Overview:
A member of the RNA family "Small nucleolar RNA SNORD14" from Turnera subulata, 128 nucleotides long. The family's RNA type in Rfam is C/D-box small nucleolar RNA. Rfam 15.1 lists 4,559 matches to the family in 936 species. The family's consensus secondary structure was predicted with PFOLD. A search with the family's covariance model found it, with a score of 68 bits. The source organism's lineage runs through Eukaryota, Embryophyta, Magnoliopsida, Passifloraceae and Turnera. The literature on the family includes a 1996 paper in Nucleic Acids Res by Samarsky et al., "An essential domain in Saccharomyces cerevisiae U14 snoRNA is absent in vertebrates, but conserved in other yeasts".
[Rfam]
RNA sequence: AUUCGAUGAUGAUAUCUUGAUAAGGCUUGUUUCUCAAGAACAUUCGCAGUGGCCGCCUAAGAGCUCUCGCCUUCGCCGGGUUUGACCGAGCUUGUGCUGCUUUUAUCCUUCCUUGGAUGUCUGAGAAU
Numbered sequence: 001a002u003u004c005g006a007u008g009a010u011g012a013u014a015u016c017u018u019g020a021u022a023a024g025g026c027u028u029g030u031u032u033c034u035c036a037a038g039a040a041c042a043u044u045c046g047c048a049g050u051g052g053c054c055g056c057c058u059a060a061g062a063g064c065u066c067u068c069g070c071c072u073u074c075g076c077c078g079g080g081u082u083u084g085a086c087c088g089a090g091c092u093u094g095u096g097c098u099g100c101u102u103u104u105a106u107c108c109u110u111c112c113u114u115g116g117a118u119g120u121c122u123g124a125g126a127a128u
Stems, first nucleotide, its partner, number of pairs: 001128004063091004